[Rfam]
About this RNA:
Rfam assigns this 71-nucleotide RNA from Mytilus coruscus to the family "mir-10 microRNA precursor family".
RNA sequence: UUACAUAAACCCGUAGAUCCGAACUUGUGCUAUUUGCUUUUCACAAGCUCAGGUCUAAGGGUCUGUGUAGU
Numbered sequence: 001u002u003a004c005a006u007a008a009a010c011c012c013g014u015a016g017a018u019c020c021g022a023a024c025u026u027g028u029g030c031u032a033u034u035u036g037c038u039u040u041u042c043a044c045a046a047g048c049u050c051a052g053g054u055c056u057a058a059g060g061g062u063c064u065g066u067g068u069a070g071u
Base pairs, nucleotide, nucleotide: 002069003068004067005066006065007064010061011060012059015056016055017054018053019052021050022049024047025046026045027044028043029042

Rfam links the family to the GO terms RISC complex and miRNA-mediated post-transcriptional gene silencing.
The source organism's lineage runs through Eukaryota, Opisthokonta, Bilateria, Autobranchia and Mytilus.
For this family Rfam cites "microRNAs: tiny regulators with great potential" (Ambros, Cell, 2001).
The family's consensus secondary structure was predicted with PFOLD.
Rfam 15.1 lists 3,853 matches to the family in 853 species.